[Rfam]
RNA sequence: CGAGCUGGCCGGGCAGUCGCUGUUCAUUCUGGUUGUUUAAUCAGAGUGGAGGGAGGAAAGUCCGGGCUCCAGAGGGUAGGGCGCCAGGUAACGCCUGGGGGGCGAAAGCCUACGGAAAGUGCAGCAGAGAGUAGACCGCCUAAGUCAGUAUUCUUUUUUGACGCUUGUUGGAAAAGAAGCAGGCCGGUAAGGGUGAAAGGGUGCGGUAAGAGCGCACCGCAUGGCUGGUAACAGUCCAUGGCACGGUAAACCCCGCCUGGAGCAAGACCAAAUAGGAAUCCUAUAGGUGUGUCCCGCACUGGAUUCGGGUAGGUUGCUUGAGGUGUCUGGUGACAGGCAUCCCAGAUGAAUGACUGCUCAGGCCUGCUUUGGCAGGCUGGACAGAACCCGGCUUACAGGCUGGCUCGCGUC
Numbered sequence: 001c002g003a004g005c006u007g008g009c010c011g012g013g014c015a016g017u018c019g020c021u022g023u024u025c026a027u028u029c030u031g032g033u034u035g036u037u038u039a040a041u042c043a044g045a046g047u048g049g050a051g052g053g054a055g056g057a058a059a060g061u062c063c064g065g066g067c068u069c070c071a072g073a074g075g076g077u078a079g080g081g082c083g084c085c086a087g088g089u090a091a092c093g094c095c096u097g098g099g100g101g102g103c104g105a106a107a108g109c110c111u112a113c114g115g116a117a118a119g120u121g122c123a124g125c126a127g128a129g130a131g132u133a134g135a136c137c138g139c140c141u142a143a144g145u146c147a148g149u150a151u152u153c154u155u156u157u158u159u160g161a162c163g164c165u166u167g168u169u170g171g172a173a174a175a176g177a178a179g180c181a182g183g184c185c186g187g188u189a190a191g192g193g194u195g196a197a198a199g200g201g202u203g204c205g206g207u208a209a210g211a212g213c214g215c216a217c218c219g220c221a222u223g224g225c226u227g228g229u230a231a232c233a234g235u236c237c238a239u240g241g242c243a244c245g246g247u248a249a250a251c252c253c254c255g256c257c258u259g260g261a262g263c264a265a266g267a268c269c270a271a272a273u274a275g276g277a278a279u280c281c282u283a284u285a286g287g288u289g290u291g292u293c294c295c296g297c298a299c300u301g302g303a304u305u306c307g308g309g310u311a312g313g314u315u316g317c318u319u320g321a322g323g324u325g326u327c328u329g330g331u332g333a334c335a336g337g338c339a340u341c342c343c344a345g346a347u348g349a350a351u352g353a354c355u356g357c358u359c360a361g362g363c364c365u366g367c368u369u370u371g372g373c374a375g376g377c378u379g380g381a382c383a384g385a386a387c388c389c390g391g392c393u394u395a396c397a398g399g400c401u402g403g404c405u406c407g408c409g410u411c
Stems, first nucleotide, its partner, number of pairs: 001407010011396001012358007020053002023050011058394003062391005067262004074295003079258005084098005099113001100111004114253002119251002121247002136192002138188003144184003148180001200218006219242001220240005225234003266315004276306006286300005322341008